[Rfam]
RNA: Fluoride riboswitch aptamer (crcB RNA motif)
Organism: Rhodanobacter thiooxydans
RNA sequence: UGUCAGUCAGGUGAUGGAGUUCACCUGCGACCGCCCCCAGGGCUGAUGACUCCUACAGGCAA
Numbered sequence: 001u002g003u004c005a006g007u008c009a010g011g012u013g014a015u016g017g018a019g020u021u022c023a024c025c026u027g028c029g030a031c032c033g034c035c036c037c038c039a040g041g042g043c044u045g046a047u048g049a050c051u052c053c054u055a056c057a058g059g060c061a062a
Stems, first nucleotide, its partner, number of pairs: 010025004016053006033043003